A member of the RNA family "SAM riboswitch aptamer (S box leader)" from Oribacterium sp. oral taxon 078, 105 nucleotides long. It is one of the family's seed sequences. The family's consensus secondary structure is taken from published work. Lineage of the source: Bacteria > Bacillati > Bacillota > Lachnospiraceae > Oribacterium sp. oral taxon 078.

[Rfam]
RNA sequence: AUCUUAUUCAGAGACGGUGGAGCUACAUAGGAGCGAAGAAGCCGCAGCAACCCCGGAAACGGAAGGUGCUAACCUGAGCGAACAAUUUGUUUCGAACAAUAAGAC
Numbered sequence: 001a002u003c004u005u006a007u008u009c010a011g012a013g014a015c016g017g018u019g020g021a022g023c024u025a026c027a028u029a030g031g032a033g034c035g036a037a038g039a040a041g042c043c044g045c046a047g048c049a050a051c052c053c054c055g056g057a058a059a060c061g062g063a064a065g066g067u068g069c070u071a072a073c074c075u076g077a078g079c080g081a082a083c084a085a086u087u088u089g090u091u092u093c094g095a096a097c098a099a100u101a102a103g104a105c
Base pairs, nucleotide, nucleotide: 002104003103004102005101006100007099008098013045015044016043017042018041022034023033024032028078031075046070047069048068049067051066052065053062054061055060079094080093081092082091